Annotation
Small nucleolar RNA Z188: a 113-nucleotide sequence from Aegilops tauschii. It scores 66 bits against the family's covariance model.
[Rfam]
RNA sequence: GCGUGCCGAUGAUGAUGCAAAAGCUUCGGUGAAUUCUGGAUGAAUGCGCUUGCGCACCAUCAGUUGUGUGCGCAGCUCUGGUGAUAUCCACUGCGUAAUACUCUGAGGCACAC
Number, nucleotide and partner (000 for none) at each position: 001g000002c000003g111004u110005g109006c108007c107008g000009a000010u000011g000012a000013u000014g000015a000016u000017g000018c000019a000020a000021a000022a000023g000024c000025u000026u000027c000028g000029g000030u000031g000032a000033a000034u000035u000036c000037u000038g000039g000040a000041u000042g000043a000044a000045u000046g000047c000048g000049c000050u000051u000052g000053c000054g000055c000056a000057c000058c000059a000060u000061c000062a000063g000064u000065u000066g000067u000068g000069u000070g000071c000072g000073c000074a000075g000076c000077u000078c000079u000080g000081g000082u000083g000084a000085u000086a000087u000088c000089c000090a000091c000092u000093g000094c000095g000096u000097a000098a000099u000100a000101c000102u000103c000104u000105g000106a000107g007108g006109c005110a004111c003112a000113c000
Lineage of the source: Eukaryota > Viridiplantae > Streptophytina > Euphyllophyta > Aegilops tauschii.